[Rfam]
A member of the RNA family "Ribosomal protein L10 leader" from Staphylococcus massiliensis, 153 nucleotides long. Rfam's curators write: This family is a putative r-protein leader autoregulatory structure found in B. subtilis and other low-GC Gram-positive bacteria. A search with the family's covariance model found it, with a score of 83 bits. On this family, see Yakhnin et al., Nucleic Acids Res 2015: "Ribosomal protein L10(L12)4 autoregulates expression of the Bacillus subtilis rplJL operon by a transcription attenuation mechanism". The organism belongs to Staphylococcus massiliensis, within Bacteria.
RNA sequence: AUAAAUGUGAUUAUUUUACCUAAGACAGUAGGAGUUUAAAGAAACUUAAUCAUCAUAGCAAUUUAUGAUAUCCUACCGAGGCUAAAUUGACUUGAACGUGAUAAGAUUCAAGCACUUUUUGCCGCGGGUAAAAAGUGCUUUUUUAUUGUAAAA
Numbered sequence: 001a002u003a004a005a006u007g008u009g010a011u012u013a014u015u016u017u018a019c020c021u022a023a024g025a026c027a028g029u030a031g032g033a034g035u036u037u038a039a040a041g042a043a044a045c046u047u048a049a050u051c052a053u054c055a056u057a058g059c060a061a062u063u064u065a066u067g068a069u070a071u072c073c074u075a076c077c078g079a080g081g082c083u084a085a086a087u088u089g090a091c092u093u094g095a096a097c098g099u100g101a102u103a104a105g106a107u108u109c110a111a112g113c114a115c116u117u118u119u120u121g122c123c124g125c126g127g128g129u130a131a132a133a134a135g136u137g138c139u140u141u142u143u144u145a146u147u148g149u150a151a152a153a
Base pairs, nucleotide, nucleotide: 028076029075030074031073032072033071034045035044036043112138113137114136115135116134117133118132119131120130121129